[Rfam]
RNA sequence: AGCCACCUCCCCGAAGAGAGCCCUGAGUUCCAUCAGGGCUAUCCGAAGGGGCAAUCGAUAAUUCUCUCAGGACGAGAAGACGGAUAGGGAUUG
Number, nucleotide and partner (000 for none) at each position: 001a000002g000003c000004c000005a000006c088007c087008u086009c000010c000011c083012c082013g081014a000015a000016g000017a000018g000019a000020g039021c038022c037023c036024u035025g034026a033027g000028u000029u000030c000031c000032a000033u026034c025035a024036g023037g022038g021039c020040u000041a000042u072043c071044c070045g068046a067047a000048g000049g066050g065051g064052c000053a000054a000055u000056c000057g000058a000059u000060a000061a000062u000063u000064c051065u050066c049067u046068c045069a000070g044071g043072a042073c000074g000075a000076g000077a000078a000079g000080a000081c013082g012083g011084a000085u000086a008087g007088g006089g000090a000091u000092u000093g000